[Rfam]
Nucleotides: 110
Base pairs, nucleotide, nucleotide: 006098009095012058013057014056017031018030019029020028021027038053039052040051041050042049065090066089067088068087072083073082074081
Number, partner (000 for none) and nucleotide at each position: 001000u002000g003000a004000a005000u006098a007000c008000g009095a010000a011000c012058a013057g014056g015000g016000a017031g018030c019029u020028u021027g022000u023000g024000a025000a026000g027021c028020a029019g030018g031017c032000u033000g034000a035000g036000a037000g038053g039052a040051a041050g042049u043000a044000a045000u046000c047000g048000a049042a050041c051040u052039u053038c054000g055000a056014c057013c058012u059000a060000u061000u062000g063000u064000a065090c066089c067088u068087g069000a070000u071000g072083u073082g074081g075000g076000u077000a078000a079000u080000g081074c082073c083072a084000a085000c086000g087068u088067a089066g090065g091000g092000a093000a094000a095009u096000a097000a098006u099000g100000u101000g102000u103000c104000g105000c106000a107000u108000a109000u110000u

Rfam assigns this 110-nucleotide RNA from Clostridium sp. CAG:7 to the family "TPP riboswitch aptamer (THI element)". The base pairs follow the family's consensus structure, which is taken from published work. Its family is annotated with thiamine pyrophosphate binding in the Gene Ontology. It scores 61 bits against the family's covariance model.